The record is a 129-nucleotide sequence from Sinorhizobium saheli, which matches "Alphaproteobacterial sRNA ar35" in Rfam. The family has 13 seed sequences and 266 matches in Rfam 15.1. By type it is a small RNA.
RNA sequence: GCGCCCUUUGAGCGCAUGCGCAUGCUCGUUCAGAACGAGAUUGUCAUCUCCCUGCCUUUGACCACGGAUGUACUGGCACUGGCGGGUUGAGAUGAUGAGGAAGGUCGGGUUCGCCCGGCCUUUUUUAUU
Numbered sequence: 001g002c003g004c005c006c007u008u009u010g011a012g013c014g015c016a017u018g019c020g021c022a023u024g025c026u027c028g029u030u031c032a033g034a035a036c037g038a039g040a041u042u043g044u045c046a047u048c049u050c051c052c053u054g055c056c057u058u059u060g061a062c063c064a065c066g067g068a069u070g071u072a073c074u075g076g077c078a079c080u081g082g083c084g085g086g087u088u089g090a091g092a093u094g095a096u097g098a099g100g101a102a103g104g105u106c107g108g109g110u111u112c113g114c115c116c117g118g119c120c121u122u123u124u125u126u127a128u129u
Base pairs, nucleotide, nucleotide: 001036010031011030012029013028014027045094046093047092048091049090050089053084054083055082056081059078060077062076063075064074095128096127097126098125099124100123101122102121103120104119105118106117107116108115
On this family, see del Val et al., RNA Biol 2012: "A survey of sRNA families in alpha-proteobacteria". NCBI's taxonomy places the organism under Bacteria, Pseudomonadati, Pseudomonadota, Rhizobiaceae, Sinorhizobium.